[Rfam]
RNA: Small nucleolar RNA SNORD34
Organism: Oryza meyeriana
RNA sequence: UAUUUCCUAUGAUGAGUUGCGAAAAUGAUUGCCUACAUUGUUUGACUGACCUGUGAGAGAUUUGCAACGUCUGAGGAUAUA
Numbered sequence: 001u002a003u004u005u006c007c008u009a010u011g012a013u014g015a016g017u018u019g020c021g022a023a024a025a026u027g028a029u030u031g032c033c034u035a036c037a038u039u040g041u042u043u044g045a046c047u048g049a050c051c052u053g054u055g056a057g058a059g060a061u062u063u064g065c066a067a068c069g070u071c072u073g074a075g076g077a078u079a080u081a
Base pairs, nucleotide, nucleotide: 001081002080005077006076007075